[Rfam]
RNA sequence: AUAAACGAGAAGACGGAAAAUCAAUCCGUUUUCCCUACGCGGUCAAAGUCUUGGGAGGAUGCGAUCCAGGCGCGGUUACUCGCUGCCGCCGGACACCGGAAACGGAUCGGACGCGUUACAAAUUGCAAGGCUUCGGCCUUGCAUUUUUUU
Numbered sequence: 001a002u003a004a005a006c007g008a009g010a011a012g013a014c015g016g017a018a019a020a021u022c023a024a025u026c027c028g029u030u031u032u033c034c035c036u037a038c039g040c041g042g043u044c045a046a047a048g049u050c051u052u053g054g055g056a057g058g059a060u061g062c063g064a065u066c067c068a069g070g071c072g073c074g075g076u077u078a079c080u081c082g083c084u085g086c087c088g089c090c091g092g093a094c095a096c097c098g099g100a101a102a103c104g105g106a107u108c109g110g111a112c113g114c115g116u117u118a119c120a121a122a123u124u125g126c127a128a129g130g131c132u133u134c135g136g137c138c139u140u141g142c143a144u145u146u147u148u149u150u
Base pairs, nucleotide, nucleotide: 003150004149005148011031012030013029014028015027016026038115039114040113041112048060049059050058051057063108064107065106066105067104069087070086071085072083073082074081089099090098091097124143125142126141127140128139129138130137131136
This 150-nucleotide RNA from Aquibium oceanicum belongs to the Rfam family "Alphaproteobacterial sRNA ar9". It scores 128 bits against the family's covariance model. By type it is a small RNA. Taxonomically the source falls in Aquibium (Bacteria, Pseudomonadati, Pseudomonadota, Phyllobacteriaceae). A reference for the family is del Val et al. (2012), "A survey of sRNA families in alpha-proteobacteria", RNA Biol.